The record is a 119-nucleotide RNA from Cotesia typhae, which matches "Small nucleolar RNA snoR104" in Rfam. For this family Rfam cites "Experimental RNomics: identification of 140 candidates for small non-messenger RNAs in the plant Arabidopsis thaliana" (Marker et al., Curr Biol, 2002). The family's consensus secondary structure was predicted with WAR. A search with the family's covariance model found it, with a score of 41 bits. The source organism's lineage runs through Eukaryota, Pterygota, Neoptera, Ichneumonoidea and Cotesia.
RNA sequence: GUAGACAUAUUGUAAAGAUUUGAUUGUCUUUGAUACAACCCUCCAACAAUAAAAUUGUAGAAGAACAUUCUCGUUGAAUAAAGUUAUAUUUACGAGGCUACAUUUUACUUGACAAUAAA
Numbered sequence: 001g002u003a004g005a006c007a008u009a010u011u012g013u014a015a016a017g018a019u020u021u022g023a024u025u026g027u028c029u030u031u032g033a034u035a036c037a038a039c040c041c042u043c044c045a046a047c048a049a050u051a052a053a054a055u056u057g058u059a060g061a062a063g064a065a066c067a068u069u070c071u072c073g074u075u076g077a078a079u080a081a082a083g084u085u086a087u088a089u090u091u092a093c094g095a096g097g098c099u100a101c102a103u104u105u106u107a108c109u110u111g112a113c114a115a116u117a118a119a
Stems, first nucleotide, its partner, number of pairs: 001031001003029001005027003009024004056112001069097006076090001078087002